A member of the RNA family "mir-3118 microRNA precursor family" from Homo sapiens, 76 nucleotides long.
The family has 2 seed sequences and 51 matches in Rfam 15.1.
The base pairs follow the family's consensus structure, which was predicted with RNAalifold.

RNA sequence: CACACAUACAAUAAUAUUCAUAAUGCAAUCACACACAAUCACCAUGUGACUGCAUUAUGAAAAUUCUUCUAGUGUG
Numbered sequence: 001c002a003c004a005c006a007u008a009c010a011a012u013a014a015u016a017u018u019c020a021u022a023a024u025g026c027a028a029u030c031a032c033a034c035a036c037a038a039u040c041a042c043c044a045u046g047u048g049a050c051u052g053c054a055u056u057a058u059g060a061a062a063a064u065u066c067u068u069c070u071a072g073u074g075u076g
Base pairs, nucleotide, nucleotide: 001076002075003074004073005072007071008070010068011067013065014064015063017061018060019059020058021057022056023055024054025053026052027051029049030048031047032046033045

Taxonomically the source falls in Homo (Eukaryota, Deuterostomia, Euteleostomi, Boreoeutheria). Rfam links the family to the GO terms miRNA-mediated post-transcriptional gene silencing and RISC complex.